The family of this 109-nucleotide RNA sequence from Anolis carolinensis is "Small nucleolar RNA U6-53/MBII-28". Rfam's curators put it in the seed alignment. The literature on the family includes a 2001 paper in EMBO J by Huttenhofer et al., "RNomics: an experimental approach that identifies 201 candidates for novel, small, non-messenger RNAs in mouse". Rfam links the family to the GO terms RNA processing and nucleolus.

[Rfam]
RNA sequence: CACCCAUGAUGACUAGCCAUGCUAAUACCGAGCCACCGAGUGGAGCUGUCUGCUUUGAACUCGGGUGUCAGUGAGUUAAGCUUGCUUCUCACAGGAAGACCUGAGGUGU
Numbered sequence: 001c002a003c004c005c006a007u008g009a010u011g012a013c014u015a016g017c018c019a020u021g022c023u024a025a026u027a028c029c030g031a032g033c034c035a036c037c038g039a040g041u042g043g044a045g046c047u048g049u050c051u052g053c054u055u056u057g058a059a060c061u062c063g064g065g066u067g068u069c070a071g072u073g074a075g076u077u078a079a080g081c082u083u084g085c086u087u088c089u090c091a092c093a094g095g096a097a098g099a100c101c102u103g104a105g106g107u108g109u
Base pairs, nucleotide, nucleotide: 001108002107003106004105041058043056044055045054